The family of this 81-nucleotide sequence from Pipistrellus kuhlii is "mir-574 microRNA precursor family". Its family is annotated with miRNA-mediated post-transcriptional gene silencing and RISC complex in the Gene Ontology.
RNA sequence: AGGCCUGCAGAGAGAAGCAGAGUCUGAUUUGUAGCCUCUGUGGCAGCUGUUGAUCAGCCCUUGCUACUCUCUUUCUCUCAG
Numbered sequence: 001a002g003g004c005c006u007g008c009a010g011a012g013a014g015a016a017g018c019a020g021a022g023u024c025u026g027a028u029u030u031g032u033a034g035c036c037u038c039u040g041u042g043g044c045a046g047c048u049g050u051u052g053a054u055c056a057g058c059c060c061u062u063g064c065u066a067c068u069c070u071c072u073u074u075c076u077c078u079c080a081g
Stems, first nucleotide, its partner, number of pairs: 009072006016065005022059001024057006032049004
Background: The family has 6 seed sequences and 4,084 matches in Rfam 15.1. Pairs were carried over by alignment from the consensus structure, which was predicted with RNAalifold. A search with the family's covariance model found it, with a score of 81 bits. On this family, see Lui et al., Cancer Res 2007: "Patterns of known and novel small RNAs in human cervical cancer". The family is grouped with related families in Rfam's "mir-574 microRNA precursor clan".